[Rfam]
RNA sequence: AUGUGCUAACCUCUAGUUUCUCUUAUAAUUUUGCCUGCUACCUUGGCAUUCCAUCUAAAAAGGUACAAACAUCGCAUUGUCAAAAAGAGGUGGUUUUAGUGCGUAGGCGCUGUGGGACUUCAUUGUCCCGAUGAUGCAGCGAAUCGUGCAUACGAGAUUGUCCAGUAGUUGGUUGCUCGUAUCUUUAGAAAAUAGCCAAAUGCCUCGUCAUC
Number, nucleotide and partner (000 for none) at each position: 001a000002u000003g000004u000005g000006c000007u000008a000009a000010c000011c000012u000013c000014u000015a000016g000017u000018u000019u000020c000021u000022c000023u000024u000025a000026u000027a000028a000029u000030u000031u000032u000033g000034c000035c000036u000037g000038c000039u065040a064041c063042c062043u061044u060045g000046g000047c000048a000049u000050u000051c000052c000053a000054u000055c000056u000057a000058a000059a000060a044061a043062g042063g041064u040065a039066c000067a000068a000069a000070c000071a211072u210073c000074g208075c207076a000077u000078u000079g000080u000081c000082a000083a000084a000085a000086a000087g206088a205089g204090g203091u198092g197093g196094u000095u000096u000097u000098a000099g149100u148101g147102c146103g145104u000105a000106g000107g000108c141109g140110c139111u138112g137113u136114g129115g128116g127117a126118c125119u000120u000121c000122a000123u000124u000125g118126u117127c116128c115129c114130g000131a000132u000133g000134a000135u000136g113137c112138a111139g110140c109141g108142a000143a000144u000145c103146g102147u101148g100149c099150a000151u181152a180153c179154g178155a177156g176157a000158u000159u000160g000161u000162c000163c000164a000165g000166u000167a000168g000169u000170u000171g000172g000173u000174u000175g000176c156177u155178c154179g153180u152181a151182u000183c000184u000185u000186u000187a000188g000189a000190a000191a000192a000193u000194a000195g000196c093197c092198a091199a000200a000201u000202g000203c090204c089205u088206c087207g075208u074209c000210a072211u071212c000
Shown here is a 212-nucleotide sequence from Drosophila willistoni, a member of the family "R2 RNA element". The family has 15 seed sequences and 3,698 matches in Rfam 15.1. Pairs were carried over by alignment from the consensus structure, which is taken from published work. Rfam's curators write: This family represents the 3' UTR region of the R2 retrotransposable element. This family is known to interact with the R2-encoded reverse transcriptase in a reaction known as target primed reverse transcription (TPRT). By type it is a cis-regulatory element.